Record summary:
GlmZ RNA activator of glmS mRNA: a 204-nucleotide RNA from Morganella morganii. NCBI's taxonomy places the organism under Bacteria, Pseudomonadati, Enterobacterales, Morganella, Morganella morganii subsp. morganii. On this family, see Islam et al., EMBO J 2023: "Structure of a bacterial ribonucleoprotein complex central to the control of cell envelope biogenesis". The match comes from Rfam's covariance-model search (67 bits). Pairs were carried over by alignment from the consensus structure, which is taken from published work. This RNA was discovered in E. coli during a large scale screen.

RNA sequence: GCAGUUGCUCAUUCAAUUUUUUAUGUCGGCCCGCACUAUGGCGGAAACAUGCCACAUAAGCCCGGGAAUGAUGCCAGAGUAAGGUGCCUACCGUCCGUUAAUACCGAUAACUGCGCAAGCUUUAUCAGACACAGGGCGACACGUUGAGUGAGGCACCACCUUAAUCUCACUGACGGGACGGCAGGAAACUGUCGUCCCGUCAUC
Dot-bracket structure: ((...(((((((....(.(..(....(.......................)..)...)......)..)))).)).)..))..(((((((...((((.........((((.............)))).......)))).............)))))))................(((((((((((....))))))))))).....